Rfam assigns this 105-nucleotide RNA from Caenorhabditis brenneri to the family "Caenorhabditis snoRNA ceN69". Lineage of the source: Eukaryota > Opisthokonta > Protostomia > Rhabditina > Caenorhabditis. Rfam 15.1 lists 11 matches to the family in 10 species. A reference for the family is Jia et al. (2007), "Systematic identification of non-coding RNA 2,2,7-trimethylguanosine cap structures in Caenorhabditis elegans", BMC Mol Biol. It is annotated as a C/D-box small nucleolar RNA.
RNA sequence: GACAGAAUGAUGAGUCGCUCUAAGAGUGACAAUAAGCCGAGUGUUAGCGGUUUUCGUAACCGUGAUGAUCAUUCCCUCAAAAGCGAUCUAUGUGGUCUGACUGUC
Number, nucleotide and partner (000 for none) at each position: 001g105002a104003c103004a102005g101006a000007a000008u000009g000010a000011u000012g000013a000014g000015u000016c000017g000018c000019u000020c000021u000022a000023a000024g000025a000026g000027u000028g000029a000030c000031a000032a000033u000034a000035a000036g000037c000038c000039g000040a000041g000042u000043g000044u000045u000046a000047g000048c000049g000050g000051u000052u000053u000054u000055c000056g000057u000058a000059a000060c000061c000062g000063u000064g000065a000066u000067g000068a000069u000070c000071a000072u000073u000074c000075c000076c000077u000078c000079a000080a000081a000082a000083g000084c000085g000086a000087u000088c000089u000090a000091u000092g000093u000094g000095g000096u000097c000098u000099g000100a000101c005102u004103g003104u002105c001